The record is a 130-nucleotide sequence from Lactuca sativa, which matches "small nucleolar RNA snoR127" in Rfam. Rfam 15.1 lists 273 matches to the family in 170 species. It is annotated as a C/D-box small nucleolar RNA.

[Rfam]
RNA sequence: CUGGAAUGAGGAAGCUUAGCCAAAUCAGACAUUGAUGUGCUCCAUAGGGAUGGAUGGUUACACUUGACAUCCUUUUGUUGAAGCGCAUCUCUCUGAUGAUAAAACAGAGAUGGGUUACUAGCUGACCAGA
Numbered sequence: 001c002u003g004g005a006a007u008g009a010g011g012a013a014g015c016u017u018a019g020c021c022a023a024a025u026c027a028g029a030c031a032u033u034g035a036u037g038u039g040c041u042c043c044a045u046a047g048g049g050a051u052g053g054a055u056g057g058u059u060a061c062a063c064u065u066g067a068c069a070u071c072c073u074u075u076u077g078u079u080g081a082a083g084c085g086c087a088u089c090u091c092u093c094u095g096a097u098g099a100u101a102a103a104a105c106a107g108a109g110a111u112g113g114g115u116u117a118c119u120a121g122c123u124g125a126c127c128a129g130a
Stems, first nucleotide, its partner, number of pairs: 001129004